[Rfam]
RNA sequence: CACACACGGGCUUAGGGUGACGUGACUUUAGUCAGGCAUCCGCCGGUGGUAUCUGAAACGCGAGUUGAGGAUAUUCACGGCCCGUGGAGGCAAACCGGAAAAAGGAAAAUUA
Number, nucleotide and partner (000 for none) at each position: 001c089002a000003c087004a000005c086006a085007c084008g083009g082010g081011c080012u000013u000014a000015g041016g040017g039018u038019g037020a000021c000022g000023u000024g000025a000026c000027u000028u000029u000030a000031g000032u000033c000034a000035g000036g000037c019038a018039u017040c016041c015042g000043c000044c000045g000046g000047u000048g000049g074050u073051a072052u071053c070054u069055g000056a000057a000058a000059c000060g000061c000062g000063a000064g000065u000066u000067g000068a000069g054070g053071a052072u051073a050074u049075u000076c000077a000078c000079g000080g011081c010082c009083c008084g007085u006086g005087g003088a000089g001090g000091c000092a000093a000094a000095c000096c000097g000098g000099a000100a000101a000102a000103a000104g000105g000106a000107a000108a000109a000110u000111u000112a000
Record summary: A member of the RNA family "rpsB sRNA" from Limoniibacter endophyticus, 112 nucleotides long. Lineage of the source: Bacteria > Alphaproteobacteria > Hyphomicrobiales > Bartonellaceae > Limoniibacter. By type it is a small RNA.